[Rfam]
RNA sequence: GAGCCCGUGGUUCGUAACCAUCCCACGAAAAAAAACUAGGGAGAG
Numbered sequence: 001g002a003g004c005c006c007g008u009g010g011u012u013c014g015u016a017a018c019c020a021u022c023c024c025a026c027g028a029a030a031a032a033a034a035a036c037u038a039g040g041g042a043g044a045g
Stems, first nucleotide, its partner, number of pairs: 006027005015038002

The record is a 45-nucleotide RNA sequence from Oceanobacillus bengalensis, which matches "PreQ1 (pre queuosine) riboswitch aptamer" in Rfam. Gene Ontology term of the family: queuosine biosynthetic process.